[Rfam]
RNA sequence: GGGGUGUGCUCAGAGCAGGGGGCCCAAAGAAUGGCUCCUCUGUUUACAACACACCCAACAGGAAUCUGGGGUCAUUGUGAUGAGGGCGUCAAACUUGUGGCUUCCCUAUGAACAAACGUCCCCCAACACCU
Numbered sequence: 001g002g003g004g005u006g007u008g009c010u011c012a013g014a015g016c017a018g019g020g021g022g023c024c025c026a027a028a029g030a031a032u033g034g035c036u037c038c039u040c041u042g043u044u045u046a047c048a049a050c051a052c053a054c055c056c057a058a059c060a061g062g063a064a065u066c067u068g069g070g071g072u073c074a075u076u077g078u079g080a081u082g083a084g085g086g087c088g089u090c091a092a093a094c095u096u097g098u099g100g101c102u103u104c105c106c107u108a109u110g111a112a113c114a115a116a117c118g119u120c121c122c123c124c125a126a127c128a129c130c131u
Base pairs, nucleotide, nucleotide: 002056003055004054005053006052007051008050013045014044015043016042017041018040019039020038021037022035023034024033069124070123071122076118077117078116081114082113084107085106086105088101089100090099091098
Small nucleolar RNA SNORA11: a 131-nucleotide RNA sequence. About the family: U107 (SNORA11) is a member of the H/ACA class of snoRNAs that guide the sites of modification of uridines to pseudouridines. This snoRNA was identified by RT-PCR from blood cells and its expression confirmed by Northern blot analysis. There is no predicted target for this guide snRNA. Pairs were carried over by alignment from the consensus structure, which was predicted with RNAalifold. On this family, see Gu et al., Nucleic Acids Res 2005: "A novel experimental approach for systematic identification of box H/ACA snoRNAs from eukaryotes". Its family is annotated with nucleolus and RNA processing in the Gene Ontology.